[Rfam]
RNA: Yersinia sRNA 276
Organism: Tatumella morbirosei
RNA sequence: UACUGACAUCAGCGAUUCAUUCUGCGAACCGGCACCCACCGCCAGGUAGGCAUUCAUGCCCAGCUCUUUCAUCUGCUGCUCACCAAUCACCCGGGUGGUGAUGUUCUGGCUGUAGGCAUCGGCCAGCUGGCGGGCCUGAGAAGCCAGAUAAGCCGGAUUACAGAUAUUCGGUGGCAUAUUGCUGAGAUCUUUGGC
Numbered sequence: 001u002a003c004u005g006a007c008a009u010c011a012g013c014g015a016u017u018c019a020u021u022c023u024g025c026g027a028a029c030c031g032g033c034a035c036c037c038a039c040c041g042c043c044a045g046g047u048a049g050g051c052a053u054u055c056a057u058g059c060c061c062a063g064c065u066c067u068u069u070c071a072u073c074u075g076c077u078g079c080u081c082a083c084c085a086a087u088c089a090c091c092c093g094g095g096u097g098g099u100g101a102u103g104u105u106c107u108g109g110c111u112g113u114a115g116g117c118a119u120c121g122g123c124c125a126g127c128u129g130g131c132g133g134g135c136c137u138g139a140g141a142a143g144c145c146a147g148a149u150a151a152g153c154c155g156g157a158u159u160a161c162a163g164a165u166a167u168u169c170g171g172u173g174g175c176a177u178a179u180u181g182c183u184g185a186g187a188u189c190u191u192u193g194g195c
Base pairs, nucleotide, nucleotide: 005189006188013031014030016028017027018026020024035041050059051058062077063076064075078135079134080133081132083130084129085128087126092122094120095119096118097117099112100111102109136163137162138161140159141158144155167186168185169184170183171182172181